[Rfam]
RNA sequence: GGUUGCAACAUCCCCGUGGGUUGGGUGUCCGGUUCGGUGAACGGGCACAGUGAACCCACUGCAACU
Numbered sequence: 001g002g003u004u005g006c007a008a009c010a011u012c013c014c015c016g017u018g019g020g021u022u023g024g025g026u027g028u029c030c031g032g033u034u035c036g037g038u039g040a041a042c043g044g045g046c047a048c049a050g051u052g053a054a055c056c057c058a059c060u061g062c063a064a065c066u
Base pairs, nucleotide, nucleotide: 001066002065003064004063005062006061007060013052014050016059017058018057019056020055021054022053023051025048026047027046028045029044030043031042
nadA riboswitch: a 66-nucleotide sequence. It is one of the family's seed sequences. For this family Rfam cites "Structure and ligand binding of the ADP-binding domain of the NAD(+) riboswitch" (Huang et al., RNA, 2020).